[Rfam]
The family of this 48-nucleotide RNA sequence is "uup RNA". Pairs were carried over by alignment from the consensus structure, which is taken from published work. Rfam classes the family as a cis-regulatory element.
RNA sequence: GACGGAUCAGCUCUGUGCAAAUGUAUCCGAUGAAGCAUUGUACGGAGC
Numbered sequence: 001g002a003c004g005g006a007u008c009a010g011c012u013c014u015g016u017g018c019a020a021a022u023g024u025a026u027c028c029g030a031u032g033a034a035g036c037a038u039u040g041u042a043c044g045g046a047g048c
Base pairs, nucleotide, nucleotide: 011047012046013045014044015043017041018040019039